[Rfam]
RNA sequence: AUUAAAAUAAGACCGUUUCGGAAUGGAAAC
Numbered sequence: 001a002u003u004a005a006a007a008u009a010a011g012a013c014c015g016u017u018u019c020g021g022a023a024u025g026g027a028a029a030c
Base pairs, nucleotide, nucleotide: 013026014025015024016023017022
This 30-nucleotide RNA from Methanocaldococcus jannaschii belongs to the Rfam family "CRISPR RNA direct repeat element". NCBI's taxonomy places the organism under Archaea, Methanobacteriota, Methanocaldococcaceae, Methanocaldococcus, Methanocaldococcus jannaschii.